[Rfam]
Rfam assigns this 74-nucleotide RNA from Amphibalanus amphitrite to the family "mir-87 microRNA precursor family". NCBI's taxonomy places the organism under Eukaryota, Metazoa, Arthropoda, Mandibulata, Amphibalanus. The family has 44 seed sequences and 420 matches in Rfam 15.1. Gene Ontology terms of the family: miRNA-mediated post-transcriptional gene silencing and RISC complex. On this family, see Sempere et al., Dev Biol 2003: "Temporal regulation of microRNA expression in Drosophila melanogaster mediated by hormonal signals and broad-Complex gene activity".
RNA sequence: CUCAGGCCGGCCUGGAAUUUUGCUCCACCUGUCAUGUUAGAACUAGGUGAGCAAAGCUUCAGGUGUGUCGGAGA
Dot-bracket structure: .((.(((..((((((..((((.(((..(((..............))).))).))))..))))))..))).))..